[Rfam]
RNA sequence: AAAAAUGCCAGCUAAGUUACGUCUGUAUAUACAGACGCGUCAGAGGCUGGCUAGAACGCGACUGAUUGAGUUCCCAGAGCAAUCUGGGUGAUUGGCAGUCAUACAAU
Dot-bracket structure: ......(((((((......(((((((....))))))).......)))))))........(((((.((((...((((((....))))))...))))))))).......
A member of the RNA family "Small nucleolar RNA GlsR20" from Giardia duodenalis, 107 nucleotides long. Taxonomically the source falls in Giardia duodenalis (Eukaryota, Fornicata, Diplomonadida, Giardiinae). The family's consensus secondary structure was predicted with WAR. On this family, see Hudson et al., Nucleic Acids Res 2012: "Evolutionarily divergent spliceosomal snRNAs and a conserved non-coding RNA processing motif in Giardia lamblia".